[Rfam]
RNA sequence: UGAGUUAGCCAAACAAUCGCUGGUUUAUUGAAGCCCUAAACCGUUUGUAUAAACGACCUAGUGGGACAAAUAGACGAGAGGAAAGUCCGGGCUACAUAGGGCAGAGUGCCAGAUAACGUCUGGGAGGCGAAAGCCUACGACAAGUGCAGCAGAGAGCAGACCGCCGAUGGCUCGUUUGAGAUCAGGUAAGGGUGAAAGGGUGCGGUAAGAGCGCACCGUGUGAGUGGUAACAUUUCACAGCAGGGUAAACUCCACUCGUAGCAAGACCAAAUAGGAACUCAAUGGGUGGCCCGCUCAGAGUUCGGGUAGGUUGCUUGAGCGUUUGUGUGAACAAACGCCUAGAUGAAUGAUUGUUCAACGACAGAACCCGGCUUAUCGACUAACUCAACGA
Numbered sequence: 001u002g003a004g005u006u007a008g009c010c011a012a013a014c015a016a017u018c019g020c021u022g023g024u025u026u027a028u029u030g031a032a033g034c035c036c037u038a039a040a041c042c043g044u045u046u047g048u049a050u051a052a053a054c055g056a057c058c059u060a061g062u063g064g065g066a067c068a069a070a071u072a073g074a075c076g077a078g079a080g081g082a083a084a085g086u087c088c089g090g091g092c093u094a095c096a097u098a099g100g101g102c103a104g105a106g107u108g109c110c111a112g113a114u115a116a117c118g119u120c121u122g123g124g125a126g127g128c129g130a131a132a133g134c135c136u137a138c139g140a141c142a143a144g145u146g147c148a149g150c151a152g153a154g155a156g157c158a159g160a161c162c163g164c165c166g167a168u169g170g171c172u173c174g175u176u177u178g179a180g181a182u183c184a185g186g187u188a189a190g191g192g193u194g195a196a197a198g199g200g201u202g203c204g205g206u207a208a209g210a211g212c213g214c215a216c217c218g219u220g221u222g223a224g225u226g227g228u229a230a231c232a233u234u235u236c237a238c239a240g241c242a243g244g245g246u247a248a249a250c251u252c253c254a255c256u257c258g259u260a261g262c263a264a265g266a267c268c269a270a271a272u273a274g275g276a277a278c279u280c281a282a283u284g285g286g287u288g289g290c291c292c293g294c295u296c297a298g299a300g301u302u303c304g305g306g307u308a309g310g311u312u313g314c315u316u317g318a319g320c321g322u323u324u325g326u327g328u329g330a331a332c333a334a335a336c337g338c339c340u341a342g343a344u345g346a347a348u349g350a351u352u353g354u355u356c357a358a359c360g361a362c363a364g365a366a367c368c369c370g371g372c373u374u375a376u377c378g379a380c381u382a383a384c385u386c387a388a389c390g391a
Stems, first nucleotide, its partner, number of pairs: 001387008010378001011376001012355007020078002023075006083374003087371005092261004099292004104257005109123005124138001125136004139252002144250002146246002161191002163187003168184002171180003199217006218241001219239005224233003265312004275303006283297005319338008
Rfam assigns this 391-nucleotide RNA from Avibacterium volantium to the family "Bacterial RNase P class A". Lineage of the source: Bacteria > Pseudomonadati > Pseudomonadota > Pasteurellaceae > Avibacterium. It scores 320 bits against the family's covariance model. Ribonuclease P (RNase P) is a ubiquitous endoribonuclease, found in archaea, bacteria and eukarya as well as chloroplasts and mitochondria. Its best characterised activity is the generation of mature 5'-ends of tRNAs by cleaving the 5'-leader elements of precursor-tRNAs. Cellular RNase Ps are ribonucleoproteins. RNA from bacterial RNase Ps retains its catalytic activity in the absence of the protein subunit, i.e. it is a ribozyme.